Shown here is a 158-nucleotide RNA sequence from Dietzia sp. ANT_WB102, a member of the family "c-di-AMP riboswitch aptamer (ydaO/yuaA leader)".
Nucleotides: 158
Stems, first nucleotide, its partner, number of pairs: 002029001004027001030139006040081002082124003090102004105118004
Number, partner (000 for none) and nucleotide at each position: 001000a002029u003000g004027c005000g006000a007000c008000u009000u010000u011000g012000a013000c014000c015000a016000u017000u018000a019000c020000c021000c022000g023000g024000g025000c026000g027004g028000g029002g030139a031138c032137g033136g034135g035134g036000g037000a038000c039000c040081c041080g042000a043000c044000a045000g046000g047000g048000c049000c050000c051000a052000c053000g054000a055000c056000g057000g058000g059000c060000c061000c062000g063000g064000c065000g066000a067000c068000c069000g070000a071000u072000g073000g074000u075000c076000g077000c078000c079000u080041u081040g082124g083123g084122g085000u086000g087000a088000a089000g090102c091101c092100g093099c094000c095000g096000c097000c098000g099093g100092c101091g102090g103000c104000c105118g106117g107116g108115c109000g110000c111000a112000c113000u114000c115108g116107u117106c118105c119000g120000a121000a122084u123083c124082c125000g126000a127000c128000a129000g130000c131000u132000c133000a134035c135034c136033c137032c138031g139030u140000a141000g142000g143000c144000a145000c146000a147000g148000a149000g150000u151000g152000a153000a154000a155000a156000g157000g158000a
Background:
It scores 54 bits against the family's covariance model.